[Rfam]
RNA sequence: AUAGGCUGCAGGCCUCUACUCCUACUUUAUAGGGGCGUGUAAGCCAUAAAAAAGGAGGAAGCAAAUCCCGUCGGGCCGGCGGUGCGGCAGUGUGGAGACCUGUCGUAAUGUCCGUGCAGGUUCGCUCUGCGCGGAUAAGGGGCGCUUGCGGGAGCAGGUAGUCCCACGGCUUGUAUACAUGGCA
Numbered sequence: 001a002u003a004g005g006c007u008g009c010a011g012g013c014c015u016c017u018a019c020u021c022c023u024a025c026u027u028u029a030u031a032g033g034g035g036c037g038u039g040u041a042a043g044c045c046a047u048a049a050a051a052a053a054g055g056a057g058g059a060a061g062c063a064a065a066u067c068c069c070g071u072c073g074g075g076c077c078g079g080c081g082g083u084g085c086g087g088c089a090g091u092g093u094g095g096a097g098a099c100c101u102g103u104c105g106u107a108a109u110g111u112c113c114g115u116g117c118a119g120g121u122u123c124g125c126u127c128u129g130c131g132c133g134g135a136u137a138a139g140g141g142g143c144g145c146u147u148g149c150g151g152g153a154g155c156a157g158g159u160a161g162u163c164c165c166a167c168g169g170c171u172u173g174u175a176u177a178c179a180u181g182g183c184a
Stems, first nucleotide, its partner, number of pairs: 007041004012036007068082004072173007083107008092099002110136009139165005147156003
Dot-bracket structure: ......((((.(((((((...........))))))).))))..........................[[[[(((((((]]]]((((((((.((....))))))))))..(((((((((.........)))))))))..(((((...(((....)))....))))).)))))))...........
RNA: malK-I RNA